[Rfam]
Notes:
A member of the RNA family "tRNA" from Desulfacinum hydrothermale, 73 nucleotides long. Lineage of the source: Bacteria > Thermodesulfobacteriota > Syntrophobacteria > Syntrophobacteraceae > Desulfacinum hydrothermale.
RNA sequence: GGGCCGUUAACUCAGUUGGUAGAGUAUCUGCCUUUUAAGCAGAGAGUCGCAGGUUCGAGUCCUGCACGGCCCA
Numbered sequence: 001g002g003g004c005c006g007u008u009a010a011c012u013c014a015g016u017u018g019g020u021a022g023a024g025u026a027u028c029u030g031c032c033u034u035u036u037a038a039g040c041a042g043a044g045a046g047u048c049g050c051a052g053g054u055u056c057g058a059g060u061c062c063u064g065c066a067c068g069g070c071c072c073a
Base pairs, nucleotide, nucleotide: 001072002071003070004069005068006067007066010025011024012023013022027043028042029041030040031039049065050064051063052062053061
It scores 75 bits against the family's covariance model. By type it is a transfer RNA. Pairs were carried over by alignment from the consensus structure, which is taken from published work.